[Rfam]
RNA: PyrR binding site
Organism: Alkalibaculum bacchi
RNA sequence: GAUAUCUUUAAACAAGUCCUGUGAGACUAGCAAGAUAAACAUUAAUGAUUUUGCACAAUUAUUAUACAAGUGUGACUUCUUGCUAGCGCAAGAAGUCUUUUUUUGA
Numbered sequence: 001g002a003u004a005u006c007u008u009u010a011a012a013c014a015a016g017u018c019c020u021g022u023g024a025g026a027c028u029a030g031c032a033a034g035a036u037a038a039a040c041a042u043u044a045a046u047g048a049u050u051u052u053g054c055a056c057a058a059u060u061a062u063u064a065u066a067c068a069a070g071u072g073u074g075a076c077u078u079c080u081u082g083c084u085a086g087c088g089c090a091a092g093a094a095g096u097c098u099u100u101u102u103u104u105g106a
Base pairs, nucleotide, nucleotide: 003037004036005035006034007033008032013030015028016027017026018025045062046061047060048059049058050057070101072099074097075096076095077094078093079092080091081090082089083088